[Rfam]
RNA sequence: UUCUUAUUUAGAGCAGGUGGAGGGACAAGCCCUAUGAUACCCGGCAACCGAUUCAAUUUUGGACACGGUGCUAAUUCUUGCAGCUUAUUGCUGAGAGAUAAGAA
Number, nucleotide and partner (000 for none) at each position: 001u104002u103003c102004u101005u100006a099007u098008u097009u000010a000011g000012a000013g042014c000015a000016g041017g040018u039019g000020g000021a000022g032023g031024g030025a000026c080027a079028a078029g077030c024031c023032c022033u000034a000035u000036g000037a000038u000039a018040c017041c016042c013043g072044g071045c070046a069047a000048c068049c067050g064051a000052u062053u061054c000055a000056a000057u000058u000059u000060u000061g053062g052063a000064c050065a000066c000067g049068g048069u046070g045071c044072u043073a000074a000075u000076u096077c029078u028079u027080g026081c093082a092083g091084c090085u000086u000087a000088u000089u000090g084091c083092u082093g081094a000095g000096a076097g008098a007099u006100a005101a004102g003103a002104a001
Record summary
Rfam assigns this 104-nucleotide RNA sequence from Paenisporosarcina antarctica to the family "SAM riboswitch aptamer (S box leader)". The match comes from Rfam's covariance-model search (80 bits). From the family's description: The SAM riboswitch is found upstream of a number of genes which code for proteins involved in methionine or cysteine biosynthesis in Gram-positive bacteria. The source organism's lineage runs through Bacteria, Bacillota, Caryophanales, Caryophanaceae and Paenisporosarcina.